[Rfam]
RNA sequence: AUUUCUCAAUGAUGAUUUUUACCUACAUUGCUUGAGGACAACCUGUGAGAACAAUAAAGUGACUGAGAGAAAU
Numbered sequence: 001a002u003u004u005c006u007c008a009a010u011g012a013u014g015a016u017u018u019u020u021a022c023c024u025a026c027a028u029u030g031c032u033u034g035a036g037g038a039c040a041a042c043c044u045g046u047g048a049g050a051a052c053a054a055u056a057a058a059g060u061g062a063c064u065g066a067g068a069g070a071a072a073u
Base pairs, nucleotide, nucleotide: 001073002072004070005069006068007067
The record is a 73-nucleotide sequence from Paramuricea clavata, which matches "Small nucleolar RNA SNORD34" in Rfam. A search with the family's covariance model found it, with a score of 44 bits. On this family, see Galardi et al., Mol Cell Biol 2002: "Purified box C/D snoRNPs are able to reproduce site-specific 2'-O-methylation of target RNA in vitro". The family is grouped with related families in Rfam's "SNORD34 clan". Rfam's curators write: snoRNA U34 is found in intron 5 of the ribosomal protein L13a gene in humans. Pairs were carried over by alignment from the consensus structure, which was predicted with PFOLD. NCBI's taxonomy places the organism under Eukaryota, Opisthokonta, Cnidaria, Octocorallia, Paramuricea. The family has 14 seed sequences and 1,319 matches in Rfam 15.1.